[Rfam]
RNA sequence: GACGGGACACCGCCGAGUCGCUCGGCGAGCCGGGGAACCAACCGGCUGUCGUUCACGACAGCCAACCGGGGUGAAUCCAACGGCUCUCGUACGGGAGCCCGCGGUAGGGCGAACCCACUUCUUCCCGCCCGAACCCGUCAGCUAACCCGGUAGGCGGUAGCGGGAGAAGGA
Numbered sequence: 001g002a003c004g005g006g007a008c009a010c011c012g013c014c015g016a017g018u019c020g021c022u023c024g025g026c027g028a029g030c031c032g033g034g035g036a037a038c039c040a041a042c043c044g045g046c047u048g049u050c051g052u053u054c055a056c057g058a059c060a061g062c063c064a065a066c067c068g069g070g071g072u073g074a075a076u077c078c079a080a081c082g083g084c085u086c087u088c089g090u091a092c093g094g095g096a097g098c099c100c101g102c103g104g105u106a107g108g109g110c111g112a113a114c115c116c117a118c119u120u121c122u123u124c125c126c127g128c129c130c131g132a133a134c135c136c137g138u139c140a141g142c143u144a145a146c147c148c149g150g151u152a153g154g155c156g157g158u159a160g161c162g163g164g165a166g167a168a169g170g171a
Stems, first nucleotide, its partner, number of pairs: 011156004018028003029151006039068001069136003077104002107130004
c-di-AMP riboswitch aptamer (ydaO/yuaA leader): a 171-nucleotide sequence from Actinocatenispora rupis. Taxonomically the source falls in Actinocatenispora (Bacteria, Bacillati, Actinomycetes, Micromonosporaceae). It scores 73 bits against the family's covariance model. From the family's description: This family represents a conserved RNA structure found upstream of the ydaO and yuaA genes in Bacillus subtilis and related genes in other bacteria.